Background: A member of the RNA family "Small Cajal body specific RNA 6" from Colius striatus, 263 nucleotides long. Gene Ontology terms of the family: nucleolus and RNA processing. By type it is a small Cajal body RNA. The match comes from Rfam's covariance-model search (120 bits). From the family's description: U88 is small Cajal body specific RNA (scaRNA). scaRNAs are a novel class of small nuclear RNAs which localise to the Cajal bodies. U88 is found associated with both fibrillarin and Gar1p and co-localises with coilin in Cajal bodies.
[Rfam]
RNA sequence: GGUCUGUGACGAAUAGUAAAAGGUCUGAUUAUCCUGAGACUCGCACUUCCAUGACCUGUUCUCCCAGCAGUUUCUCACCAGUCACGGCACAGUAAUGGUGUGGCUGGCAGAGUGUUUGCUGACAGCUUGUGAUGUGUUCAGUUCAUGUUAACCUCAAGUACUGGAGACAUGACUGGGAUCAGCAUCCAACAGUCUUGCCUGAAGGAGUUUGGGGUCUUGGAUUGCUGUAACUGGACAUGUGAUCUGACUUUGCUGCUGAGACC
Numbered sequence: 001g002g003u004c005u006g007u008g009a010c011g012a013a014u015a016g017u018a019a020a021a022g023g024u025c026u027g028a029u030u031a032u033c034c035u036g037a038g039a040c041u042c043g044c045a046c047u048u049c050c051a052u053g054a055c056c057u058g059u060u061c062u063c064c065c066a067g068c069a070g071u072u073u074c075u076c077a078c079c080a081g082u083c084a085c086g087g088c089a090c091a092g093u094a095a096u097g098g099u100g101u102g103g104c105u106g107g108c109a110g111a112g113u114g115u116u117u118g119c120u121g122a123c124a125g126c127u128u129g130u131g132a133u134g135u136g137u138u139c140a141g142u143u144c145a146u147g148u149u150a151a152c153c154u155c156a157a158g159u160a161c162u163g164g165a166g167a168c169a170u171g172a173c174u175g176g177g178a179u180c181a182g183c184a185u186c187c188a189a190c191a192g193u194c195u196u197g198c199c200u201g202a203a204g205g206a207g208u209u210u211g212g213g214g215u216c217u218u219g220g221a222u223u224g225c226u227g228u229a230a231c232u233g234g235a236c237a238u239g240u241g242a243u244c245u246g247a248c249u250u251u252g253c254u255g256c257u258g259a260g261a262c263c
Base pairs, nucleotide, nucleotide: 001263002262003261004260037245038244039243041241048221049220050219051218053216054215061207062206063205064204065121066120067119068118069117070116078107079106080105081104082103083102084101085100086099129187131186132185133184134183135182144171145170146169147168148167149166152164155163